[Rfam]
Shown here is a 114-nucleotide RNA from Cucurbita maxima, a member of the family "Small nucleolar RNA Z278".

RNA sequence: UCCAAUGAUGAUAUAAUCCGUUUGUCUGAGACAUUGUGGAUCCAAGACCCUGUUUCAGGGAGAACCUACUUGGUGAAGCCUUGUUCAUAUGAUAUCAAUGGAUUUAACUGAGGG
Numbered sequence: 001u002c003c004a005a006u007g008a009u010g011a012u013a014u015a016a017u018c019c020g021u022u023u024g025u026c027u028g029a030g031a032c033a034u035u036g037u038g039g040a041u042c043c044a045a046g047a048c049c050c051u052g053u054u055u056c057a058g059g060g061a062g063a064a065c066c067u068a069c070u071u072g073g074u075g076a077a078g079c080c081u082u083g084u085u086c087a088u089a090u091g092a093u094a095u096c097a098a099u100g101g102a103u104u105u106a107a108c109u110g111a112g113g114g
Stems, first nucleotide, its partner, number of pairs: 001114003048060005
Gene Ontology terms of the family: RNA processing and nucleolus. The base pairs follow the family's consensus structure, which was predicted with PFOLD. The organism belongs to Cucurbita, within Eukaryota. A reference for the family is Chen et al. (2003), "The high diversity of snoRNAs in plants: identification and comparative study of 120 snoRNA genes from Oryza sativa", Nucleic Acids Res.